[Rfam]
RNA sequence: UGAGCUCUUUGUAACUGACGGAAACGUGGGUCACCACAGGGGAGCAGAGAGCGUUUCUUGCUGAAAUUCAGCAGCCGACCGUCUGGGCACUUCAA
Numbered sequence: 001u002g003a004g005c006u007c008u009u010u011g012u013a014a015c016u017g018a019c020g021g022a023a024a025c026g027u028g029g030g031u032c033a034c035c036a037c038a039g040g041g042g043a044g045c046a047g048a049g050a051g052c053g054u055u056u057c058u059u060g061c062u063g064a065a066a067u068u069c070a071g072c073a074g075c076c077g078a079c080c081g082u083c084u085g086g087g088c089a090c091u092u093c094a095a
Stems, first nucleotide, its partner, number of pairs: 004052009015041002017083005026037004074088003
This 95-nucleotide RNA from Ruminococcaceae bacterium AF10-16 belongs to the Rfam family "ZMP/ZTP riboswitch aptamer (pfl RNA motif)". The family's consensus secondary structure is taken from published work. A search with the family's covariance model found it, with a score of 60 bits. Gene Ontology terms of the family: regulation of purine nucleotide biosynthetic process and one-carbon metabolic process.